[Rfam]
RNA sequence: GAUUUCAGAUGAAAAAAUCAUCAACAACAAAGUUGUAGAACUGACCAAGAUCUAUAACUUUUAUUUUGGUGAUUUCUUCAUCCGAGAAAGUGGUAGUAACAUUGUUCACAAAAUCUACAUAUCUCUCUUAUAGUUUAUGAAACCAUAUGAGAGAUAUGUAAAAUUUGUGAACAAUGUUACUUUCACUUUCUCGGAUGAAGAAAUGACAAAAAUAAAAGUUGUUCAUCUUGAUCAGUUCGACAACUUUGUUGUUGAUGACUUUUUAGGUGAAAUC
Dot-bracket structure: .............(((.((((.((.((..(((((((.(((((.(.((((((...(((((((((((((.((.((((.(((((.((((((((((..(((((.((((((((((((.(..((((((........(.((((...)))).)........))))))..).)))))))))))).)))))..)))))))))).))))).)))).)).)))))))))))))...)))))).).))))).)))))))..)).)).)))).)))............
This 274-nucleotide sequence from Miscanthus lutarioriparius belongs to the Rfam family "MIR821 microRNA precursor family". NCBI's taxonomy places the organism under Eukaryota, Viridiplantae, Liliopsida, Saccharinae, Miscanthus. The family's consensus secondary structure was predicted with RNAalifold.